[Rfam]
RNA sequence: UCACCCGGGUGGGGCUCCCCCCCCCGCUGUUCUAACCCUAAUUAGCCGUUAACGGCUCUCGCUCACAUUCGCUGUUUUGACCGUUGACUUUCAGCGAUUCGAAUUCUUUUUUCAAAAAACGUCACCCGUGUAAUGGGGAGGUGCCUUCUCCUCCGCCUGCCGCGCCUUCUCGCCCAACUCCUUUCUCCUGAAGCGGCCAGAGCCCGACCCCCGGUGAAGAGGCCGCGGUCAGCCUGGCCCUGGGCCGCUGCUGCCGCGAAGGGUUCGGCCCUGUCAGCCUUGGGGAGCGGCGCGGCCGGCUGAAGGGCGGUUGAGGAGCUUGGGGGCGGGGACCGGCGCGAGAGCAAAACAAACCAACCGGGCGGUGCUGCGGUUCCCCGCGAGCCGGUGCCGCGCGCUCCUGAGCAGUGGGGCGCGCGGCCGACGCUGCCCGGACACAC
Numbered sequence: 001u002c003a004c005c006c007g008g009g010u011g012g013g014g015c016u017c018c019c020c021c022c023c024c025c026g027c028u029g030u031u032c033u034a035a036c037c038c039u040a041a042u043u044a045g046c047c048g049u050u051a052a053c054g055g056c057u058c059u060c061g062c063u064c065a066c067a068u069u070c071g072c073u074g075u076u077u078u079g080a081c082c083g084u085u086g087a088c089u090u091u092c093a094g095c096g097a098u099u100c101g102a103a104u105u106c107u108u109u110u111u112u113c114a115a116a117a118a119a120c121g122u123c124a125c126c127c128g129u130g131u132a133a134u135g136g137g138g139a140g141g142u143g144c145c146u147u148c149u150c151c152u153c154c155g156c157c158u159g160c161c162g163c164g165c166c167u168u169c170u171c172g173c174c175c176a177a178c179u180c181c182u183u184u185c186u187c188c189u190g191a192a193g194c195g196g197c198c199a200g201a202g203c204c205c206g207a208c209c210c211c212c213g214g215u216g217a218a219g220a221g222g223c224c225g226c227g228g229u230c231a232g233c234c235u236g237g238c239c240c241u242g243g244g245c246c247g248c249u250g251c252u253g254c255c256g257c258g259a260a261g262g263g264u265u266c267g268g269c270c271c272u273g274u275c276a277g278c279c280u281u282g283g284g285g286a287g288c289g290g291c292g293c294g295g296c297c298g299g300c301u302g303a304a305g306g307g308c309g310g311u312u313g314a315g316g317a318g319c320u321u322g323g324g325g326g327c328g329g330g331g332a333c334c335g336g337c338g339c340g341a342g343a344g345c346a347a348a349a350c351a352a353a354c355c356a357a358c359c360g361g362g363c364g365g366u367g368c369u370g371c372g373g374u375u376c377c378c379c380g381c382g383a384g385c386c387g388g389u390g391c392c393g394c395g396c397g398c399u400c401c402u403g404a405g406c407a408g409u410g411g412g413g414c415g416c417g418c419g420g421c422c423g424a425c426g427c428u429g430c431c432c433g434g435a436c437a438c439a440c
Stems, first nucleotide, its partner, number of pairs: 007151003011147005017141001019138004059102001067099001069097006083126001085124004089119003167344007180307006198295001200293001202291003209285005224258005230253004236246003260272004360432004365427003369423001391420005398413004
RNA: Vertebrate telomerase RNA